[Rfam]
RNA sequence: GGGUGUUAGCCGCAUAGUGCGGCGAGACAGGUUCAUGCGCUGGUCGGGCCGCCGCG
Dot-bracket structure: ....(((.(((.........)))..))).........(((.(((......))))))
A member of the RNA family "nhaA-I RNA" from Kerstersia gyiorum, 56 nucleotides long. It is annotated as a riboswitch. About the family: Acidobacteria, Alphaproteobacteria, Betaproteobacteria and Gammaproteobacteria, Verrucomicrobia, cand. division NC10. NCBI's taxonomy places the organism under Bacteria, Betaproteobacteria, Burkholderiales, Alcaligenaceae, Kerstersia.